[Rfam]
RNA sequence: AAGCGAGGACGACCUCCCCCGUUACGGGUCUGAUUCUGUCGGGACGACCCGA
Numbered sequence: 001a002a003g004c005g006a007g008g009a010c011g012a013c014c015u016c017c018c019c020c021g022u023u024a025c026g027g028g029u030c031u032g033a034u035u036c037u038g039u040c041g042g043g044a045c046g047a048c049c050c051g052a
Base pairs, nucleotide, nucleotide: 003018005016006015007014008013039052040051041050042049043048

Background
A member of the RNA family "Guanidine-II riboswitch aptamer (mini-ykkC)" from Oceanibacterium hippocampi, 52 nucleotides long. Simpler in structure and has fewer highly conserved nucleotide positions than the ykkC-yxkD leader. Despite this each of its two stem-loop structures directly bind free guanidine. Therefore, mini-ykkC RNA motif represents a distinct class of guanidine-sensing RNAs. Its crystal structure was also determined. Gene Ontology term of the family: regulation of gene expression.